[Rfam]
RNA sequence: CUCUUAUCCAGAGCAGCUGAGGGACUGGCCCGUUGAAGCUCGGCAACCUUAAAAAAAGGUGCUAAUUCCAGCAAGACACCCGUCUUGAAAGAUGAGAG
Numbered sequence: 001c002u003c004u005u006a007u008c009c010a011g012a013g014c015a016g017c018u019g020a021g022g023g024a025c026u027g028g029c030c031c032g033u034u035g036a037a038g039c040u041c042g043g044c045a046a047c048c049u050u051a052a053a054a055a056a057a058g059g060u061g062c063u064a065a066u067u068c069c070a071g072c073a074a075g076a077c078a079c080c081c082g083u084c085u086u087g088a089a090a091g092a093u094g095a096g097a098g
Base pairs, nucleotide, nucleotide: 001098002097003096004095005094006093007092008091013041015040016039017038021031022030023029025071026070027069028068042063043062044061045060047059048058049055050054067090072087073086074085075084076083077082

This 98-nucleotide RNA sequence from Oceanobacillus oncorhynchi belongs to the Rfam family "SAM riboswitch aptamer (S box leader)". Taxonomically the source falls in Oceanobacillus (Bacteria, Bacilli, Caryophanales, Bacillaceae). Pairs were carried over by alignment from the consensus structure, which is taken from published work. Rfam describes the family as follows. The SAM riboswitch is found upstream of a number of genes which code for proteins involved in methionine or cysteine biosynthesis in Gram-positive bacteria.